[Rfam]
RNA sequence: UCUCUUCCCAUCACCGGGCAGAGCGCCUAUAUUGAGUGGGUCAGGCUUCGGUUUGACUAUGGGGAUAAACGCCCACGUAAUAAGCGAACUGGACCCGGGUGCGAUUCCCGGCGGCUCCACCAUUAUUCUCCCGGUUUCGCGGGAAGGUUAUGGGGCCGAUCAGCAUCGACAGGCGUGUAAAGGUGAAGCUUUCCCUCAGUGUGAGGCUCUGUGAUCGCCUCAUUUUUUAACUGCGAACGAUAACUUCGCUUCGGAUCAAGCCAUCGCUGCGUAAUGCGGCCUGGUUAAUCCAGCCUACAACUCCUGGGAAAUAAGCCUCUCAGGCGGGGCCCGCUGGCCGCCUUGCAACAGAAGGCCAGCACC
Numbered sequence: 001u002c003u004c005u006u007c008c009c010a011u012c013a014c015c016g017g018g019c020a021g022a023g024c025g026c027c028u029a030u031a032u033u034g035a036g037u038g039g040g041u042c043a044g045g046c047u048u049c050g051g052u053u054u055g056a057c058u059a060u061g062g063g064g065a066u067a068a069a070c071g072c073c074c075a076c077g078u079a080a081u082a083a084g085c086g087a088a089c090u091g092g093a094c095c096c097g098g099g100u101g102c103g104a105u106u107c108c109c110g111g112c113g114g115c116u117c118c119a120c121c122a123u124u125a126u127u128c129u130c131c132c133g134g135u136u137u138c139g140c141g142g143g144a145a146g147g148u149u150a151u152g153g154g155g156c157c158g159a160u161c162a163g164c165a166u167c168g169a170c171a172g173g174c175g176u177g178u179a180a181a182g183g184u185g186a187a188g189c190u191u192u193c194c195c196u197c198a199g200u201g202u203g204a205g206g207c208u209c210u211g212u213g214a215u216c217g218c219c220u221c222a223u224u225u226u227u228u229a230a231c232u233g234c235g236a237a238c239g240a241u242a243a244c245u246u247c248g249c250u251u252c253g254g255a256u257c258a259a260g261c262c263a264u265c266g267c268u269g270c271g272u273a274a275u276g277c278g279g280c281c282u283g284g285u286u287a288a289u290c291c292a293g294c295c296u297a298c299a300a301c302u303c304c305u306g307g308g309a310a311a312u313a314a315g316c317c318u319c320u321c322a323g324g325c326g327g328g329g330c331c332c333g334c335u336g337g338c339c340g341c342c343u344u345g346c347a348a349c350a351g352a353a354g355g356c357c358a359g360c361a362c363c
Stems, first nucleotide, its partner, number of pairs: 040057007061196005071189002074185003085175002089172003095111005112158007197211003202222003206218002327343004333360006
The record is a 363-nucleotide RNA sequence from Asticcacaulis benevestitus, which matches "Alphaproteobacteria transfer-messenger RNA" in Rfam. The organism belongs to Asticcacaulis benevestitus, within Bacteria. For this family Rfam cites "Phylogenetic analysis of tmRNA secondary structure" (Williams and Bartel, RNA, 1996).